[Rfam]
RNA sequence: UGGGCAGGGAUUGUGUGUAUCGGUGUUGUGCUACAAUGAUUGCACUAUUCCGAAAGAGUUCCCUGCAAAAUAAAUUUGGGGGAGAUGGGCAGUUGUGUUUCACUUUGCCAUUGAAAAUAACAACAAUCAUCCCCCCUACAUUU
Dot-bracket structure: ...(((((((....(((((.....................)))))..............)))))))...........(((((.(((((...((((.........................))))..))))).)))))......

The family of this 143-nucleotide RNA sequence from Cajanus cajan is "small nucleolar RNA snoR135". The match comes from Rfam's covariance-model search (135 bits). The family's RNA type in Rfam is H/ACA-box small nucleolar RNA. Rfam 15.1 lists 837 matches to the family in 220 species.